Record summary:
permuted transfer-messenger RNA: a 236-nucleotide RNA from Novosphingobium sp. PhB165. NCBI's taxonomy places the organism under Bacteria, Pseudomonadati, Pseudomonadota, Alphaproteobacteria, Novosphingobium. Rfam classes the family as a non-coding RNA gene. About the family: Bacterial tmRNA, also known as 10Sa RNA or SsrA, is named for its dual tRNA and mRNA-like properties. Its role is to liberate the mRNA from a stalled ribosome. For this family Rfam cites "Phylogenetic analysis of tmRNA secondary structure" (Williams and Bartel, RNA, 1996). Pairs were carried over by alignment from the consensus structure, which is taken from published work.
RNA sequence: GAUGAUAAACUGCGCCGUUCAAUAGGCACAGCGGACCCGGGGGCGGUACCCGGCGGCUCCACCAUCACCCGUCCAGCUUAUGGCGGGACAACCCUGUUGUCGCAGGGGUGAUGACGGGGCCGAACUAGGAUCGACGUGUGUUGAAAAGCGGUGUUUUCUUCCGGGCUGAGUAACCCGUUCAAGGCUCAAAACUCACAAGUGCCAACGACAACGAAGCACUCGCUCUCGCCGCGUAA
Dot-bracket structure: ((.((.........((((........(((.(((...(((((.......)))))(((((((.......................................................)))))))............)))))).......)))).....)).))((((........))))...........................................................